Shown here is a 201-nucleotide sequence from Drosophila ananassae, a member of the family "U11 spliceosomal RNA". Gene Ontology terms of the family: U11 snRNP, mRNA 5'-splice site recognition and pre-mRNA 5'-splice site binding. The source organism's lineage runs through Eukaryota, Eumetazoa, Allotriocarida, Drosophilidae and ananassae species complex. Clan: U1 clan. The family's RNA type in Rfam is spliceosomal small nuclear RNA.

[Rfam]
RNA sequence: AAAAAGGGUGCUCGUCUUCGCGCGUUCGAUCGCUGAACAAAAGUGCAGACGCAUUGCGCCGCAGGACCAUCUCAUUUUUUGGUGUGCGUCUAAUUGCCGCCUUCGAUGGUUCCUUGCGUGCCCAGUGGGGUAUGGCUUUGCAUAUCCAGUGCAUAAUUUUUGUAAUGGGGCUGGCGGCUGCACCUCGAACCGUUCGCACUG
Numbered sequence: 001a002a003a004a005a006g007g008g009u010g011c012u013c014g015u016c017u018u019c020g021c022g023c024g025u026u027c028g029a030u031c032g033c034u035g036a037a038c039a040a041a042a043g044u045g046c047a048g049a050c051g052c053a054u055u056g057c058g059c060c061g062c063a064g065g066a067c068c069a070u071c072u073c074a075u076u077u078u079u080u081g082g083u084g085u086g087c088g089u090c091u092a093a094u095u096g097c098c099g100c101c102u103u104c105g106a107u108g109g110u111u112c113c114u115u116g117c118g119u120g121c122c123c124a125g126u127g128g129g130g131u132a133u134g135g136c137u138u139u140g141c142a143u144a145u146c147c148a149g150u151g152c153a154u155a156a157u158u159u160u161u162g163u164a165a166u167g168g169g170g171c172u173g174g175c176g177g178c179u180g181c182a183c184c185u186c187g188a189a190c191c192g193u194u195c196g197c198a199c200u201g
Base pairs, nucleotide, nucleotide: 008152009151010150011149012148013051014050015049016048017047052127053126054125055124056123058121059120060118061117062116063115064114065113128147129146130145131144132143133142134141168199170197171196173195174193175192176191177190179189181187